[Rfam]
Nucleotides: 439
Base pairs, nucleotide, nucleotide: 001435002434003433004432005431007429008428011425012378013377014376015375016374017373020044021043022042023041024040025039026038027037028036049423050422051421053420054419055418056417057416058286059285060284061283067314068313072281073280074279076278077277078092079091080090081089082088093107094105095104096103097102108276109275113274114273115270116269117268129217130216131213132212133211134210135209136208137207139205225243226242227241228240229239230238245265246263247262248261249260250259251258252257290335291334292333293332300326301325302324303323304322305319306318307317308316342361343360344359345358346357347356348355349354
Number, partner (000 for none) and nucleotide at each position: 001435a002434g003433a004432g005431u006000a007429g008428g009000c010000g011425a012378g013377g014376c015375a016374g017373u018000u019000a020044c021043a022042a023041g024040u025039a026038g027037g028036u029000a030000c031000g032000c033000g034000u035000u036028a037027c038026u039025u040024a041023c042022u043021u044020g045000a046000g047000g048000a049423a050422a051421g052000u053420c054419c055418g056417g057416g058286c059285a060284u061283c062000c063000g064000a065000a066000a067314g068313a069000c070000c071000a072281a073280a074279c075000u076278u077277g078092c079091u080090a081089g082088g083000u084000a085000a086000c087000g088082c089081c090080u091079a092078g093107u094105g095104c096103g097102c098000g099000u100000g101000a102097g103096c104095g105094u106000g107093a108276g109275g110000a111000u112000a113274g114273u115270g116269c117268c118000a119000c120000a121000g122000a123000a124000a125000a126000a127000u128000a129217c130216c131213g132212c133211c134210a135209a136208a137207a138000a139205g140000g141000g142000a143000a144000u145000a146000g147000g148000g149000a150000a151000u152000a153000g154000g155000g156000a157000a158000u159000a160000g161000g162000g163000a164000a165000u166000a167000g168000g169000u170000a171000a172000a173000a174000a175000c176000c177000c178000a179000c180000u181000c182000a183000c184000u185000a186000u187000u188000c189000a190000c191000u192000a193000c194000u195000c196000a197000c198000u199000a200000c201000u202000c203000a204000c205139u206000a207137u208136u209135u210134u211133g212132g213131u214000a215000a216130g217129g218000g219000u220000g221000c222000a223000a224000a225243g226242g227241u228240g229239c230238g231000g232000u233000a234000a235000g236000a237000g238230c239229g240228c241227a242226c243225c244000a245265g246263c247262a248261a249260c250259a251258u252257c253000g254000a255000g256000a257252g258251g259250u260249g261248u262247u263246g264000g265245c266000u267000c268117g269116g270115u271000a272000a273114a274113c275109c276108c277077c278076g279074g280073u281072u282000g283061g284060a285059u286058g287000c288000a289000a290335g291334g292333c293332u294000a295000g296000g297000g298000a299000c300326u301325a302324u303323g304322g305319u306318u307317g308316g309000u310000c311000u312000u313068u314067u315000u316308c317307c318306a319305g320000u321000u322304c323303c324302g325301u326300a327000a328000a329000u330000u331000a332293a333292g334291c335290c336000g337000c338000u339000a340000g341000a342361g343360g344359c345358g346357u347356u348355u349354g350000g351000u352000g353000a354349c355348a356347a357346a358345c359344g360343u361342u362000c363000g364000a365000g366000a367000u368000a369000g370000a371000u372000u373017a374016c375015u376014g377013c378012c379000u380000g381000c382000a383000a384000g385000u386000a387000u388000c389000u390000u391000u392000u393000u394000g395000g396000g397000a398000u399000g400000a401000u402000g403000c404000u405000u406000g407000c408000a409000a410000a411000c412000a413000g414000a415000a416057c417056c418055c419054g420053g421051c422050u423049u424000a425011u426000g427000u428008c429007c430000g431005a432004c433003u434002c435001u436000u437000u438000c439000u

Shown here is a 439-nucleotide sequence from Calothrix sp. NIES-3974, a member of the family "Bacterial RNase P class A". Ribonuclease P (RNase P) is a ubiquitous endoribonuclease, found in archaea, bacteria and eukarya as well as chloroplasts and mitochondria.